The family of this 394-nucleotide part of an RNA from Tremella mesenterica is "Eukaryotic large subunit ribosomal RNA". Rfam 15.1 lists 107,465 matches to the family in 2,616 species.
RNA sequence: CUUUAGUCCCUCGGAAUUUGAGGCUAGAGGUGCCAGAAAAGUUAAUGUGUAGCUUUAGCGAGCCGUGAGGUUCUGCUAGUCGCCGCCGGGCGGCGAGACCGUCAAAUUGCGGGAACUCCCUAAAGCCUCUGAACACCAAGCGGGAGGCGAAAGCCUCUCGUGGCCGGGGUAAUGACCUUGGGUAUGGUAACAGCGUCAGAGGAUGUACAAUGGGUGAUCCGCAGCCAAGUCCUAAGCCUUUGGGUACGGAUGCAGUUCAACGACUAGAUGGUGGUCGGUGGGCAGAGCCCGCUUAAGAUAUAGUCUGUCCCGCCCGAGAGGGUGCCGUGGGAUGAAGCGACGGGGUCCGGCUUUGAGCCCCCUCGCCCGAGCCCAUGGGGUGUAACCGGAAUCU
Numbered sequence: 001c002u003u004u005a006g007u008c009c010c011u012c013g014g015a016a017u018u019u020g021a022g023g024c025u026a027g028a029g030g031u032g033c034c035a036g037a038a039a040a041g042u043u044a045a046u047g048u049g050u051a052g053c054u055u056u057a058g059c060g061a062g063c064c065g066u067g068a069g070g071u072u073c074u075g076c077u078a079g080u081c082g083c084c085g086c087c088g089g090g091c092g093g094c095g096a097g098a099c100c101g102u103c104a105a106a107u108u109g110c111g112g113g114a115a116c117u118c119c120c121u122a123a124a125g126c127c128u129c130u131g132a133a134c135a136c137c138a139a140g141c142g143g144g145a146g147g148c149g150a151a152a153g154c155c156u157c158u159c160g161u162g163g164c165c166g167g168g169g170u171a172a173u174g175a176c177c178u179u180g181g182g183u184a185u186g187g188u189a190a191c192a193g194c195g196u197c198a199g200a201g202g203a204u205g206u207a208c209a210a211u212g213g214g215u216g217a218u219c220c221g222c223a224g225c226c227a228a229g230u231c232c233u234a235a236g237c238c239u240u241u242g243g244g245u246a247c248g249g250a251u252g253c254a255g256u257u258c259a260a261c262g263a264c265u266a267g268a269u270g271g272u273g274g275u276c277g278g279u280g281g282g283c284a285g286a287g288c289c290c291g292c293u294u295a296a297g298a299u300a301u302a303g304u305c306u307g308u309c310c311c312g313c314c315c316g317a318g319a320g321g322g323u324g325c326c327g328u329g330g331g332a333u334g335a336a337g338c339g340a341c342g343g344g345g346u347c348c349g350g351c352u353u354u355g356a357g358c359c360c361c362c363u364c365g366c367c368c369g370a371g372c373c374c375a376u377g378g379g380g381u382g383u384a385a386c387c388g389g390a391a392u393c394u
Stems, first nucleotide, its partner, number of pairs: 001379003004375001006373001010371005